[Rfam]
A member of the RNA family "Plastid-clpP 5UTR RNA" from Triticum urartu, 67 nucleotides long. Rfam 15.1 lists 2,105 matches to the family in 526 species.
RNA sequence: CAUUCUGUUCAUAGAAGAAGAGAAGCAGAUCUAUUCUAUACUCGAUAAGUGCCAAUAUGCAAUGGUA
Numbered sequence: 001c002a003u004u005c006u007g008u009u010c011a012u013a014g015a016a017g018a019a020g021a022g023a024a025g026c027a028g029a030u031c032u033a034u035u036c037u038a039u040a041c042u043c044g045a046u047a048a049g050u051g052c053c054a055a056u057a058u059g060c061a062a063u064g065g066u067a
Stems, first nucleotide, its partner, number of pairs: 003020002008016003042065002049058003